[Rfam]
RNA: Small nucleolar RNA R16
RNA sequence: CAUGGCACAUGAAGAAUUAUGUAAUCUUAUGCUAACACUGAAUAUCUGUGUUGACUACUUACUCCGCUUAUUAUCUGAUGCCACU
Numbered sequence: 001c002a003u004g005g006c007a008c009a010u011g012a013a014g015a016a017u018u019a020u021g022u023a024a025u026c027u028u029a030u031g032c033u034a035a036c037a038c039u040g041a042a043u044a045u046c047u048g049u050g051u052u053g054a055c056u057a058c059u060u061a062c063u064c065c066g067c068u069u070a071u072u073a074u075c076u077g078a079u080g081c082c083a084c085u
Stems, first nucleotide, its partner, number of pairs: 003083005